[Rfam]
RNA sequence: UGAAAACUGGUUCGAGAUAACCCCAGUAUAAAAAACUAAGAAUGU
Dot-bracket structure: .....(((((.....[......))))).........]........
RNA: PreQ1 (pre queuosine) riboswitch aptamer